[Rfam]
RNA: c-di-GMP-I riboswitch aptamer
Organism: Cohnella endophytica
RNA sequence: UUUCGAUAAAGGCAAACUUGCUGAAAAGCAAGGACGCAAAGCCACAGGGUCUAAUGUUCAUUCGAACGAUGACAGCCUGGCUGCCGAA
Numbered sequence: 001u002u003u004c005g006a007u008a009a010a011g012g013c014a015a016a017c018u019u020g021c022u023g024a025a026a027a028g029c030a031a032g033g034a035c036g037c038a039a040a041g042c043c044a045c046a047g048g049g050u051c052u053a054a055u056g057u058u059c060a061u062u063c064g065a066a067c068g069a070u071g072a073c074a075g076c077c078u079g080g081c082u083g084c085c086g087a088a
Stems, first nucleotide, its partner, number of pairs: 012037002017032006040082004046078003049073003056067004